RNA: Eukaryotic large subunit ribosomal RNA, nucleotides 870 to 1210
RNA sequence: GAGUCUAACAUGUAUGCGAGUCAUUGGGAAUGAAAACCCAAAGGCAUAAUGAAAGUAAAGGAUUCGAUUGCGAAUCUGAGGAGAGAUCAUGGCACUUGUUGGUAUGCCGCAAGGUUUUUUUCAACUGACAAGUGUGUGCGCAUCUCCUGGACGUCUAUACCCUUGAGGGUUGGGCGUACCAAGAGCAUACACGUUGGGACCCGAAAGAUGGUGAACUAUGCCUGGUCAGAACGAAGUCAGGGGAAACUCUGAUGGAGGUUCGUAGCGAUUCUGACGUGCAAAUCGAUCGUCGGAACUGGGUAUAGGGGCGAAAGACUAAUCGAACCAUCUAGUAGCUGGUU
Numbered sequence: 001g002a003g004u005c006u007a008a009c010a011u012g013u014a015u016g017c018g019a020g021u022c023a024u025u026g027g028g029a030a031u032g033a034a035a036a037c038c039c040a041a042a043g044g045c046a047u048a049a050u051g052a053a054a055g056u057a058a059a060g061g062a063u064u065c066g067a068u069u070g071c072g073a074a075u076c077u078g079a080g081g082a083g084a085g086a087u088c089a090u091g092g093c094a095c096u097u098g099u100u101g102g103u104a105u106g107c108c109g110c111a112a113g114g115u116u117u118u119u120u121u122c123a124a125c126u127g128a129c130a131a132g133u134g135u136g137u138g139c140g141c142a143u144c145u146c147c148u149g150g151a152c153g154u155c156u157a158u159a160c161c162c163u164u165g166a167g168g169g170u171u172g173g174g175c176g177u178a179c180c181a182a183g184a185g186c187a188u189a190c191a192c193g194u195u196g197g198g199a200c201c202c203g204a205a206a207g208a209u210g211g212u213g214a215a216c217u218a219u220g221c222c223u224g225g226u227c228a229g230a231a232c233g234a235a236g237u238c239a240g241g242g243g244a245a246a247c248u249c250u251g252a253u254g255g256a257g258g259u260u261c262g263u264a265g266c267g268a269u270u271c272u273g274a275c276g277u278g279c280a281a282a283u284c285g286a287u288c289g290u291c292g293g294a295a296c297u298g299g300g301u302a303u304a305g306g307g308g309c310g311a312a313a314g315a316c317u318a319a320u321c322g323a324a325c326c327a328u329c330u331a332g333u334a335g336c337u338g339g340u341u
Stems, first nucleotide, its partner, number of pairs: 005197005011191007020045003025040004049056002080147005088138004149180002151177006160168002200339002203336001207329006216305011227293001229261004236253007265290004270286002273284002307317002